[Rfam]
RNA sequence: GGCAGCUUUGUAUGAUGUUACUUCUGACAUAUCGAGGAAGACAUCAGAUAAAUCUGUGCU
Numbered sequence: 001g002g003c004a005g006c007u008u009u010g011u012a013u014g015a016u017g018u019u020a021c022u023u024c025u026g027a028c029a030u031a032u033c034g035a036g037g038a039a040g041a042c043a044u045c046a047g048a049u050a051a052a053u054c055u056g057u058g059c060u
Stems, first nucleotide, its partner, number of pairs: 002057004007052004013046006021040004025035001026033001
The record is a 60-nucleotide RNA from Pleuronectes platessa, which matches "mir-723 microRNA precursor family" in Rfam. The base pairs follow the family's consensus structure, which was predicted with RNAalifold. It scores 65 bits against the family's covariance model. Its family is annotated with RISC complex and miRNA-mediated post-transcriptional gene silencing in the Gene Ontology.